Rfam assigns this 123-nucleotide RNA from Gossypium harknessii to the family "MIR7504 microRNA precursor family".
RNA sequence: AAUGAGAGAAUGACAAAUCAAAAUUUUCCUUCUGAUUUUUAGCUUUUUCCCCCUGAAAAAAUUCAAAUCAAACUAAAAGCACUAAAAAUCAGGAGGAAAAAUCUGAUUUGUCAUUCUCCCAUU
Numbered sequence: 001a002a003u004g005a006g007a008g009a010a011u012g013a014c015a016a017a018u019c020a021a022a023a024u025u026u027u028c029c030u031u032c033u034g035a036u037u038u039u040u041a042g043c044u045u046u047u048u049c050c051c052c053c054u055g056a057a058a059a060a061a062u063u064c065a066a067a068u069c070a071a072a073c074u075a076a077a078a079g080c081a082c083u084a085a086a087a088a089u090c091a092g093g094a095g096g097a098a099a100a101a102u103c104u105g106a107u108u109u110g111u112c113a114u115u116c117u118c119c120c121a122u123u
Stems, first nucleotide, its partner, number of pairs: 001123004006118015022102001024100004029095011041083002045079004